[Rfam]
RNA sequence: CGACGCAGCCCUCCUUGGGCGUUUCCUCCCUAGACUUGGGCCGCCAGCGUCAGUUGGCGGCCUCUUUCUUUUUCGGG
Dot-bracket structure: .......((((.....))))..................(((((((((......)))))))))...............
RNA: Makes More Granules Regulator RNA (mmgR)
Organism: Alsobacter soli